[Rfam]
RNA sequence: AUUAAUAACAGAGGUUUCGAACCUCAAAAUUUAAU
Numbered sequence: 001a002u003u004a005a006u007a008a009c010a011g012a013g014g015u016u017u018c019g020a021a022c023c024u025c026a027a028a029a030u031u032u033a034a035u
Base pairs, nucleotide, nucleotide: 001035002034003033004032005031011025012024013023014022015021
RNA: S16-Flavobacteria ribosomal protein leader